RNA sequence: AAACAUUACAGCUCUUCUAGAAUUUUGUCUAGCAGAUUUUCCAGUUUUUACUAGAAACUCCUC
Dot-bracket structure: ..................................((.((((.(((....))).)))).))...
Numbered sequence: 001a002a003a004c005a006u007u008a009c010a011g012c013u014c015u016u017c018u019a020g021a022a023u024u025u026u027g028u029c030u031a032g033c034a035g036a037u038u039u040u041c042c043a044g045u046u047u048u049u050a051c052u053a054g055a056a057a058c059u060c061c062u063c
Stems, first nucleotide, its partner, number of pairs: 035060002038057004043052003
Shown here is a 63-nucleotide sequence from Saimiri boliviensis, a member of the family "U7 small nuclear RNA". A reference for the family is Mowry and Steitz (1987), "Identification of the human U7 snRNP as one of several factors involved in the 3' end maturation of histone premessenger RNA's", Science. Rfam describes the family as follows. Animal histone pre-mRNAs are spliced by a different mechanism than nuclear pre-mRNAs and self-splicing introns.